[Rfam]
RNA sequence: AAAGCAACACAAGCGCCAGAGCUUGCGACAUGGAAAGCGCUGCAACAAACCAUUCCCAUCGGAGGGAAGAGCGGCUGUGCAAGCUGACGAGGUGGAGGCGUUCGAGUUUUUCGGCGGGGACCUCCCGGUACACAUUCAUACCGUAAGCCGUUACGUAAAACGACGCGGGCGACCGGUCGGACAAUCGUGCGGCGGAGUGGAUA
Numbered sequence: 001a002a003a004g005c006a007a008c009a010c011a012a013g014c015g016c017c018a019g020a021g022c023u024u025g026c027g028a029c030a031u032g033g034a035a036a037g038c039g040c041u042g043c044a045a046c047a048a049a050c051c052a053u054u055c056c057c058a059u060c061g062g063a064g065g066g067a068a069g070a071g072c073g074g075c076u077g078u079g080c081a082a083g084c085u086g087a088c089g090a091g092g093u094g095g096a097g098g099c100g101u102u103c104g105a106g107u108u109u110u111u112c113g114g115c116g117g118g119g120a121c122c123u124c125c126c127g128g129u130a131c132a133c134a135u136u137c138a139u140a141c142c143g144u145a146a147g148c149c150g151u152u153a154c155g156u157a158a159a160a161c162g163a164c165g166c167g168g169g170c171g172a173c174c175g176g177u178c179g180g181a182c183a184a185u186c187g188u189g190c191g192g193c194g195g196a197g198u199g200g201a202u203a
Stems, first nucleotide, its partner, number of pairs: 020085008094125005102114004126143005148195005154189001161179004166175003
RNA: glmS glucosamine-6-phosphate activated ribozyme aptamer
Organism: Paenibacillus curdlanolyticus